[Rfam]
Rfam assigns this 131-nucleotide RNA from Erinaceus europaeus to the family "Small nucleolar RNA SNORA68". A reference for the family is Ganot et al. (1997), "The family of box ACA small nucleolar RNAs is defined by an evolutionarily conserved secondary structure and ubiquitous sequence elements essential for RNA accumulation", Genes Dev. By type it is an H/ACA-box small nucleolar RNA.

RNA sequence: UUAGCACCUAAACCCAAGGGCCACUAUUUAUUGUAAUAGUGGCUCAGACACAGGUACUAACAGCAAAGGUUACCUCAUCACCUUUGAGGACUUCCUGUGCCCUUCAAAGUGAAUUUAGAGUUUAUACACAC
Numbered sequence: 001u002u003a004g005c006a007c008c009u010a011a012a013c014c015c016a017a018g019g020g021c022c023a024c025u026a027u028u029u030a031u032u033g034u035a036a037u038a039g040u041g042g043c044u045c046a047g048a049c050a051c052a053g054g055u056a057c058u059a060a061c062a063g064c065a066a067a068g069g070u071u072a073c074c075u076c077a078u079c080a081c082c083u084u085u086g087a088g089g090a091c092u093u094c095c096u097g098u099g100c101c102c103u104u105c106a107a108a109g110u111g112a113a114u115u116u117a118g119a120g121u122u123u124a125u126a127c128a129c130a131c
Stems, first nucleotide, its partner, number of pairs: 002059003006055004019044010070124001072122001074120003082109005087103003091099001
Rfam describes the family as follows. U68 is a member of the H/ACA class of small nucleolar RNAs (snoRNAs) which act as guides in the the modification of uridines to pseudouridines. The match comes from Rfam's covariance-model search (102 bits).